Rfam assigns this 98-nucleotide RNA from Dioscorea zingiberensis to the family "MIR397 microRNA precursor family". It scores 59 bits against the family's covariance model. The source organism's lineage runs through Eukaryota, Viridiplantae, Euphyllophyta, Spermatophyta and Dioscorea. Its family is annotated with miRNA-mediated post-transcriptional gene silencing and RISC complex in the Gene Ontology.
[Rfam]
RNA sequence: AUCAAAUACAUAAUUGAAUGCAGCGCUGGUGAAAUUAAUUUUCCAUUGGGACUUGGAAAUGGAAUUAUUCAUCAACGCUGCACUCAAUGAUGCUUUUG
Numbered sequence: 001a002u003c004a005a006a007u008a009c010a011u012a013a014u015u016g017a018a019u020g021c022a023g024c025g026c027u028g029g030u031g032a033a034a035u036u037a038a039u040u041u042u043c044c045a046u047u048g049g050g051a052c053u054u055g056g057a058a059a060u061g062g063a064a065u066u067a068u069u070c071a072u073c074a075a076c077g078c079u080g081c082a083c084u085c086a087a088u089g090a091u092g093c094u095u096u097u098g
Base pairs, nucleotide, nucleotide: 006095009092010091011090013088014087015086016085017084019082020081021080022079023078024077025076027074028073030071031070032069